SAH (S-adenosyl-L-homocysteine) riboswitch aptamer: a 119-nucleotide sequence from Parvibium lacunae.
[Rfam]
RNA sequence: UCUGUCGAGGAGCGCUGCAAGGAUAGUUCACUCUAUCACCAGGCUCGACAUUCAUGGAGUAGCGGAGCACUGGAUUCUCUCUAAGCUUUCGACUACAUCGUAAACUGCGCUCGCAUUCU
Dot-bracket structure: ..((((((.............(((((......))))).......)))))).....................................................................

Its family is annotated with S-adenosylhomocysteine metabolic process and regulation of gene expression in the Gene Ontology. The family's consensus secondary structure is taken from published work.